[Rfam]
RNA sequence: UAGUAGGUAGGGUUGGGGCGCUAGCCGUGCCCUGCCUCUGAAACCGGCUAUAUGCAGAGACCAGUAACCGCUGGAUAAAUCUCUAGAUAGACGGUACUCGCUUGACUUGCGGAUAUGAAAUCACGCCGAAGCGGGUGGAUACAGGACUGAAGUUAUCCGAAGGGAUAACUCUCAAGUUCUAACUGCCGAAAGGGAUGAGGUCCGGGAGGGAGCAAUCCUAAGGUAGAGCAUCCACGCUGCUUCGUCUACGUGGCGGAUCUUGCUUGACUUGAGAUGAGACCGCUUGUUUAGACUGGAACUGGCGGAUCUACUA
Numbered sequence: 001u002a003g004u005a006g007g008u009a010g011g012g013u014u015g016g017g018g019c020g021c022u023a024g025c026c027g028u029g030c031c032c033u034g035c036c037u038c039u040g041a042a043a044c045c046g047g048c049u050a051u052a053u054g055c056a057g058a059g060a061c062c063a064g065u066a067a068c069c070g071c072u073g074g075a076u077a078a079a080u081c082u083c084u085a086g087a088u089a090g091a092c093g094g095u096a097c098u099c100g101c102u103u104g105a106c107u108u109g110c111g112g113a114u115a116u117g118a119a120a121u122c123a124c125g126c127c128g129a130a131g132c133g134g135g136u137g138g139a140u141a142c143a144g145g146a147c148u149g150a151a152g153u154u155a156u157c158c159g160a161a162g163g164g165a166u167a168a169c170u171c172u173c174a175a176g177u178u179c180u181a182a183c184u185g186c187c188g189a190a191a192g193g194g195a196u197g198a199g200g201u202c203c204g205g206g207a208g209g210g211a212g213c214a215a216u217c218c219u220a221a222g223g224u225a226g227a228g229c230a231u232c233c234a235c236g237c238u239g240c241u242u243c244g245u246c247u248a249c250g251u252g253g254c255g256g257a258u259c260u261u262g263c264u265u266g267a268c269u270u271g272a273g274a275u276g277a278g279a280c281c282g283c284u285u286g287u288u289u290a291g292a293c294u295g296g297a298a299c300u301g302g303c304g305g306a307u308c309u310a311c312u313a
Stems, first nucleotide, its partner, number of pairs: 001313008011062004015033007037058004042053001069304006076297001079294001084291001086289001089285002092282004097278004101271001104268001106266001109263002111260004121253005127244008135235006142228001143180006149172001151170008183226005192219005201210003
This 313-nucleotide RNA sequence from Nitrosotalea sinensis belongs to the Rfam family "Archaeal signal recognition particle RNA".
The base pairs follow the family's consensus structure, which is taken from published work.
Rfam classes the family as a non-coding RNA gene.